[Rfam]
RNA sequence: GAGACACUCCUCUAGGGCAAGACUUGCUUCAGUGGGGCUUUGGUGCUCACUGAGUUUUCCCCCUGAGUGUGUCUUU
Numbered sequence: 001g002a003g004a005c006a007c008u009c010c011u012c013u014a015g016g017g018c019a020a021g022a023c024u025u026g027c028u029u030c031a032g033u034g035g036g037g038c039u040u041u042g043g044u045g046c047u048c049a050c051u052g053a054g055u056u057u058u059c060c061c062c063c064u065g066a067g068u069g070u071g072u073c074u075u076u
Base pairs, nucleotide, nucleotide: 001075002074003073004072005071006070007069009067011065015061016060017059019057021056022055023054029053030052031051032050033049034048035047036046037044038043
The family of this 76-nucleotide RNA sequence from Myotis davidii is "mir-9229 microRNA precursor family". Gene Ontology terms of the family: RISC complex and miRNA-mediated post-transcriptional gene silencing.